[Rfam]
RNA sequence: GUGUGUUCAGUCCGACCCCCCGGGACUGAACACCGAAGACCCCCGCCUCCUCCCCCCCCUGGCGGGGGUCUUCUCUG
Numbered sequence: 001g002u003g004u005g006u007u008c009a010g011u012c013c014g015a016c017c018c019c020c021c022g023g024g025a026c027u028g029a030a031c032a033c034c035g036a037a038g039a040c041c042c043c044c045g046c047c048u049c050c051u052c053c054c055c056c057c058c059c060u061g062g063c064g065g066g067g068g069u070c071u072u073c074u075c076u077g
Stems, first nucleotide, its partner, number of pairs: 003033011035073013